Rfam assigns this 102-nucleotide RNA sequence from Ornithinibacillus halophilus to the family "Purine riboswitch aptamer".
NCBI's taxonomy places the organism under Bacteria, Bacillota, Bacilli, Bacillaceae, Ornithinibacillus.
The base pairs follow the family's consensus structure, which is taken from published work.
The family is grouped with related families in Rfam's "Purine riboswitches".
A search with the family's covariance model found it, with a score of 83 bits.

RNA sequence: CUGAAUUAAAUAGUUGCACUUCGUAUAUCCUCGAUAAUAUGGUUCGAAAGUUUCUACCGGGACACCGUAAAUGUCCUGACUAUGAAGGCAUGAAUUCGUGGU
Numbered sequence: 001c002u003g004a005a006u007u008a009a010a011u012a013g014u015u016g017c018a019c020u021u022c023g024u025a026u027a028u029c030c031u032c033g034a035u036a037a038u039a040u041g042g043u044u045c046g047a048a049a050g051u052u053u054c055u056a057c058c059g060g061g062a063c064a065c066c067g068u069a070a071a072u073g074u075c076c077u078g079a080c081u082a083u084g085a086a087g088g089c090a091u092g093a094a095u096u097c098g099u100g101g102u
Stems, first nucleotide, its partner, number of pairs: 019087007031047004058078007